Rfam assigns this 93-nucleotide RNA from Danionella cerebrum to the family "Small nucleolar SNORD12/SNORD106".
It is annotated as a C/D-box small nucleolar RNA.
Its Rfam clan is "SNORD12 clan".
A reference for the family is Vitali et al. (2003), "Identification of 13 novel human modification guide RNAs", Nucleic Acids Res.
Rfam links the family to the GO terms RNA processing and nucleolus.
The family has 8 seed sequences and 2,264 matches in Rfam 15.1.

[Rfam]
RNA sequence: UUUGUUGCACAUGAUGACCAUGAUCUUUUUUCCCCAGCAGAUCGACACUGUUGAGUUAUUGAAAAAAAAUUAGCCAAAAACCUGAGCAACAAA
Numbered sequence: 001u002u003u004g005u006u007g008c009a010c011a012u013g014a015u016g017a018c019c020a021u022g023a024u025c026u027u028u029u030u031u032c033c034c035c036a037g038c039a040g041a042u043c044g045a046c047a048c049u050g051u052u053g054a055g056u057u058a059u060u061g062a063a064a065a066a067a068a069a070u071u072a073g074c075c076a077a078a079a080a081c082c083u084g085a086g087c088a089a090c091a092a093a
Base pairs, nucleotide, nucleotide: 001093002092003091004090005089006088007087008086